A member of the RNA family "Ribosomal S15 leader" from Marinomonas ushuaiensis, 126 nucleotides long.
[Rfam]
RNA sequence: UAGGAUGUCUGAAAAUAUGCUCGGCUAUCCUUUAUUUUUAAAUAGCAUAUUAAUUUGGAGAUAUAGAUUAUGGCAUUAACUGCAGAAUCAAAAGCAGCGUUGGUUAAAGAGUUUCAAGUAGCGGAA
Numbered sequence: 001u002a003g004g005a006u007g008u009c010u011g012a013a014a015a016u017a018u019g020c021u022c023g024g025c026u027a028u029c030c031u032u033u034a035u036u037u038u039u040a041a042a043u044a045g046c047a048u049a050u051u052a053a054u055u056u057g058g059a060g061a062u063a064u065a066g067a068u069u070a071u072g073g074c075a076u077u078a079a080c081u082g083c084a085g086a087a088u089c090a091a092a093a094g095c096a097g098c099g100u101u102g103g104u105u106a107a108a109g110a111g112u113u114u115c116a117a118g119u120a121g122c123g124g125a126a
Stems, first nucleotide, its partner, number of pairs: 007026001009024004055079004060074001
About this RNA: The match comes from Rfam's covariance-model search (43 bits). From the family's description: The E. coli Ribosomal S15 gene 5' UTR can form two alternative structures. One that is a series of three hairpins, The other includes a pseudoknot. Clan: Ribosomal Protein S15 Leader clan. The family's RNA type in Rfam is cis-regulatory leader.